[Rfam]
RNA sequence: ACACCUUAAACUUAUGAGUAAAGAAAAUAAUGAUCUGGGGUGGUGCCCAAAUCCUCACUGCUAAUGUGAGAUGAAUUUUUGAGUGGGCAAAAGUUGCCCCUCUGGCAACCUGCCUACUUUGUGGGAUGCCUCGGAGUGGCAAUCUGCCCA
Dot-bracket structure: ...(.(((..........))).)........(((.((((......)))).)))(((((.......))))).............(((((..(.(((((..((..((((.(((((.......))))).))))..))....))))).))))))
A member of the RNA family "U12 minor spliceosomal RNA" from Callorhinus ursinus, 150 nucleotides long.
Rfam classes the family as a spliceosomal small nuclear RNA.
The match comes from Rfam's covariance-model search (120 bits).